[Rfam]
RNA sequence: GGGUGCUCGCUGCUUGAUGCGGCGACAGGUCAAGCGAUGGUCGGGCCGCCACG
Numbered sequence: 001g002g003g004u005g006c007u008c009g010c011u012g013c014u015u016g017a018u019g020c021g022g023c024g025a026c027a028g029g030u031c032a033a034g035c036g037a038u039g040g041u042c043g044g045g046c047c048g049c050c051a052c053g
Stems, first nucleotide, its partner, number of pairs: 005026001007025006035053002038051004
This 53-nucleotide sequence belongs to the Rfam family "nhaA-I RNA".
Rfam classes the family as a riboswitch.
Rfam describes the family as follows. Acidobacteria, Alphaproteobacteria, Betaproteobacteria and Gammaproteobacteria, Verrucomicrobia, cand. division NC10.
The sequence is in the family's curated seed alignment.